[Rfam]
Shown here is a 133-nucleotide RNA from Myripristis murdjan, a member of the family "Small nucleolar RNA SNORA75". It is annotated as an H/ACA-box small nucleolar RNA. The family's consensus secondary structure was predicted with PFOLD. Lineage of the source: Eukaryota > Eumetazoa > Actinopteri > Neoteleostei > Myripristis. Rfam's curators write: U23 belongs to the H/ACA class of snoRNAs. snoRNAs bind a number of proteins (including dyskerin, Gar1p and Nop10p in the case of the H/ACA class) to form snoRNP complexes.
RNA sequence: UUCUUCUCAUGAGCUCCUCUCUGUCCAUCAGUGACGGUGUACGGAUUCGCACGAGAAGUAGAGCAAACAUCACAAGAAUCAGUCAGCUACCUCAGCCUCACUGGGAGCUGCUUCUAUCUGAUGUGGAACAGAC
Number, nucleotide and partner (000 for none) at each position: 001u000002u000003c058004u057005u056006c055007u054008c053009a000010u000011g000012a000013g050014c049015u045016c044017c043018u000019c000020u000021c037022u036023g035024u034025c033026c000027a000028u000029c000030a000031g000032u000033g025034a024035c023036g022037g021038u000039g000040u000041a000042c000043g017044g016045a015046u000047u000048c000049g014050c013051a000052c000053g008054a007055g006056a005057a004058g003059u000060a000061g000062a000063g000064c000065a000066a000067a000068c000069a000070u126071c125072a124073c123074a122075a000076g000077a000078a000079u000080c000081a000082g000083u000084c000085a000086g000087c000088u000089a000090c107091c000092u105093c104094a000095g102096c000097c000098u000099c000100a000101c000102u095103g000104g093105g092106a000107g090108c000109u000110g000111c000112u000113u000114c000115u000116a000117u000118c000119u000120g000121a000122u074123g073124u072125g071126g070127a000128a000129c000130a000131g000132a000133c000